[Rfam]
RNA: terC RNA
Organism: Pelagibacterium luteolum
RNA sequence: UGUCGUGACCGGGCCCCUCUGGCGUCGGCGGCACUCGCCGCGAUGCGAUGUCGGAUCACCUUG
Numbered sequence: 001u002g003u004c005g006u007g008a009c010c011g012g013g014c015c016c017c018u019c020u021g022g023c024g025u026c027g028g029c030g031g032c033a034c035u036c037g038c039c040g041c042g043a044u045g046c047g048a049u050g051u052c053g054g055a056u057c058a059c060c061u062u063g
Stems, first nucleotide, its partner, number of pairs: 007056001009054004022046005029040003